[Rfam]
RNA sequence: GUGGCCGGAACGCCGAAUCCUGCCGCCGACCACGGAUCACAACUCGAAGGCAUGGAGCGGGGGACCCACAAGUUCCUCGGCGCUCACGCGUCUUGGGGUGAAGCCGCACUACGCGGCCGGGCCACUCUGCCCGAACCCGACAGCUGACCUCGCAGGCGUGGAGGACAACUGAA
Numbered sequence: 001g002u003g004g005c006c007g008g009a010a011c012g013c014c015g016a017a018u019c020c021u022g023c024c025g026c027c028g029a030c031c032a033c034g035g036a037u038c039a040c041a042a043c044u045c046g047a048a049g050g051c052a053u054g055g056a057g058c059g060g061g062g063g064a065c066c067c068a069c070a071a072g073u074u075c076c077u078c079g080g081c082g083c084u085c086a087c088g089c090g091u092c093u094u095g096g097g098g099u100g101a102a103g104c105c106g107c108a109c110u111a112c113g114c115g116g117c118c119g120g121g122c123c124a125c126u127c128u129g130c131c132c133g134a135a136c137c138c139g140a141c142a143g144c145u146g147a148c149c150u151c152g153c154a155g156g157c158g159u160g161g162a163g164g165a166c167a168a169c170u171g172a173a
Base pairs, nucleotide, nucleotide: 011158012157013156014155018056019055020054057153058152059151060150061149062148067095068094096138097137098136104116105115106114107113119132120131121130122129
RNA: c-di-AMP riboswitch aptamer (ydaO/yuaA leader)